[Rfam]
RNA sequence: AUAAGGCCCAAGGCCCAGUCCCGUGAAAGCCGGGACCGCCCUCUACAGGAAUGCUGAAUGCGGAAUGCGGAAUGCUGAAUGAGCGGGGGCGCGGCGCUGACAGCCACGCGG
Numbered sequence: 001a002u003a004a005g006g007c008c009c010a011a012g013g014c015c016c017a018g019u020c021c022c023g024u025g026a027a028a029g030c031c032g033g034g035a036c037c038g039c040c041c042u043c044u045a046c047a048g049g050a051a052u053g054c055u056g057a058a059u060g061c062g063g064a065a066u067g068c069g070g071a072a073u074g075c076u077g078a079a080u081g082a083g084c085g086g087g088g089g090c091g092c093g094g095c096g097c098u099g100a101c102a103g104c105c106a107c108g109c110g111g
Stems, first nucleotide, its partner, number of pairs: 005105003013095003016029001018036001020034003037091006